A member of the RNA family "MAT2A 3'UTR stem loop F" from Gulo gulo, 66 nucleotides long. The source organism's lineage runs through Eukaryota, Teleostomi, Euteleostomi, Carnivora and Gulo. The family's consensus secondary structure is taken from published work. For this family Rfam cites "New families of human regulatory RNA structures identified by comparative analysis of vertebrate genomes" (Parker et al., Genome Res, 2011). It is annotated as a cis-regulatory element.
[Rfam]
RNA sequence: CAUGGAGCAGGCUGACAUGGUUGGUGUGGUAGAGAGAAGCCAGCUUGUUUACAUGCUCAUCCUAUU
Number, nucleotide and partner (000 for none) at each position: 001c000002a065003u064004g063005g062006a000007g060008c000009a000010g057011g056012c055013u000014g049015a048016c047017a000018u000019g045020g044021u043022u042023g041024g040025u039026g000027u031028g000029g000030u000031a027032g000033a000034g000035a000036g000037a000038a000039g025040c024041c023042a022043g021044c020045u019046u000047g016048u015049u014050u000051a000052c000053a000054u000055g012056c011057u010058c000059a000060u007061c000062c005063u004064a003065u002066u000